RNA sequence: UGGUAGAUGCACCCUGAUAAUAGCCCCUGGCUCUUGUAGCCAGGGCUUUUUCUU
Numbered sequence: 001u002g003g004u005a006g007a008u009g010c011a012c013c014c015u016g017a018u019a020a021u022a023g024c025c026c027c028u029g030g031c032u033c034u035u036g037u038a039g040c041c042a043g044g045g046c047u048u049u050u051u052c053u054u
Stems, first nucleotide, its partner, number of pairs: 002013003025045008
The family of this 54-nucleotide RNA from Leptolyngbya sp. FACHB-321 is "Nitrogen stress-induced RNA 1". A reference for the family is Ionescu et al. (2010), "Heterocyst-specific transcription of NsiR1, a non-coding RNA encoded in a tandem array of direct repeats in cyanobacteria", J Mol Biol. Rfam 15.1 lists 962 matches to the family in 163 species. NCBI's taxonomy places the organism under Bacteria, Cyanophyceae, Leptolyngbyales, Leptolyngbyaceae, Leptolyngbya.